[Rfam]
RNA: TPP riboswitch aptamer (THI element)
Organism: Flavimobilis soli
RNA sequence: ACCAAGCCCCCGGGGAGCGCAUGAGCGCUGAGAGUGCAGGCCGGACCCCGUCCCACCUGCAGACCCGUGGAACCUGAUCUGGUCAGUACCAGCGUAGGGAGCAGGGCGGAGCAUUCCCG
Numbered sequence: 001a002c003c004a005a006g007c008c009c010c011c012g013g014g015g016a017g018c019g020c021a022u023g024a025g026c027g028c029u030g031a032g033a034g035u036g037c038a039g040g041c042c043g044g045a046c047c048c049c050g051u052c053c054c055a056c057c058u059g060c061a062g063a064c065c066c067g068u069g070g071a072a073c074c075u076g077a078u079c080u081g082g083u084c085a086g087u088a089c090c091a092g093c094g095u096a097g098g099g100a101g102c103a104g105g106g107c108g109g110a111g112c113a114u115u116c117c118c119g
Base pairs, nucleotide, nucleotide: 006107007106008105009104011067012066013065014064017028018027019026020025035061036060037059038058039057073098074097075096076095079092080091081090082089